Description:
The family of this 106-nucleotide sequence from Geomicrobium sp. JCM 19039 is "SAM riboswitch aptamer (S box leader)". Rfam's curators write: The SAM riboswitch is found upstream of a number of genes which code for proteins involved in methionine or cysteine biosynthesis in Gram-positive bacteria. Pairs were carried over by alignment from the consensus structure, which is taken from published work.
[Rfam]
RNA sequence: UUCUUAUCCAGAGAGGUGGAGGGACUGGCCCUUUGAAACCUCGGCAACAGGCUUACUCUUAAGCACUGUGCCAAUUCCUGUAGCAUGUAUGCUGCAAAGAUAAGAA
Numbered sequence: 001u002u003c004u005u006a007u008c009c010a011g012a013g014a015g016g017u018g019g020a021g022g023g024a025c026u027g028g029c030c031c032u033u034u035g036a037a038a039c040c041u042c043g044g045c046a047a048c049a050g051g052c053u054u055a056c057u058c059u060u061a062a063g064c065a066c067u068g069u070g071c072c073a074a075u076u077c078c079u080g081u082a083g084c085a086u087g088u089a090u091g092c093u094g095c096a097a098a099g100a101u102a103a104g105a106a
Base pairs, nucleotide, nucleotide: 001106002105003104004103005102006101007100008099013042014041015040016039017038021031022030023029025080027078028077043072044071045070046069048068049067051064052063053062054061076098081094082093083092084091085090